Rfam assigns this 59-nucleotide RNA sequence from Helopsaltes ochotensis to the family "Antizyme RNA frameshifting stimulation element".

[Rfam]
RNA sequence: UGAUGUCCCUCACCCACCUCUGAAGAUCCUAGGUGGGCAAGGAAAUAGUCAGAGGGAUC
Numbered sequence: 001u002g003a004u005g006u007c008c009c010u011c012a013c014c015c016a017c018c019u020c021u022g023a024a025g026a027u028c029c030u031a032g033g034u035g036g037g038c039a040a041g042g043a044a045a046u047a048g049u050c051a052g053a054g055g056g057a058u059c
Stems, first nucleotide, its partner, number of pairs: 006044001008042003013037006025059006
Rfam classes the family as a frameshift element. A reference for the family is Ivanov et al. (2004), "Identification of a new antizyme mRNA +1 frameshifting stimulatory pseudoknot in a subset of diverse invertebrates and its apparent absence in intermediate species", J Mol Biol. Rfam links the family to the GO term translational frameshifting.